The record is a 170-nucleotide sequence from Blautia sp. OF03-15BH, which matches "Clostridiales-1 RNA" in Rfam. It scores 87 bits against the family's covariance model. It is annotated as a small RNA. Lineage of the source: Bacteria > Bacillota > Clostridia > Lachnospiraceae > Blautia. The family has 194 seed sequences and 1,172 matches in Rfam 15.1.
RNA sequence: UUAUACGAAGCUUCAAAGGUCGAAAAGCCGGGCGGGCUUGCACGCCAAGGCUUUUGAACUUGGAACCCGCCAAACAGGAAGAAGGAGCGAUUUACGCAGUAAAUCAGCGGAUUCUGAGUGUUUGUUAAAUUGCGUGAGCUGCUUUGCAGCGGAGCAAUUUAUAGGUAUUA
Numbered sequence: 001u002u003a004u005a006c007g008a009a010g011c012u013u014c015a016a017a018g019g020u021c022g023a024a025a026a027g028c029c030g031g032g033c034g035g036g037c038u039u040g041c042a043c044g045c046c047a048a049g050g051c052u053u054u055u056g057a058a059c060u061u062g063g064a065a066c067c068c069g070c071c072a073a074a075c076a077g078g079a080a081g082a083a084g085g086a087g088c089g090a091u092u093u094a095c096g097c098a099g100u101a102a103a104u105c106a107g108c109g110g111a112u113u114c115u116g117a118g119u120g121u122u123u124g125u126u127a128a129a130u131u132g133c134g135u136g137a138g139c140u141g142c143u144u145u146g147c148a149g150c151g152g153a154g155c156a157a158u159u160u161a162u163a164g165g166u167a168u169u170a
Stems, first nucleotide, its partner, number of pairs: 001170001003168004010067001012065002016061003020057002023055007032045003036041001071124006080115004087108002089105007127160007138150004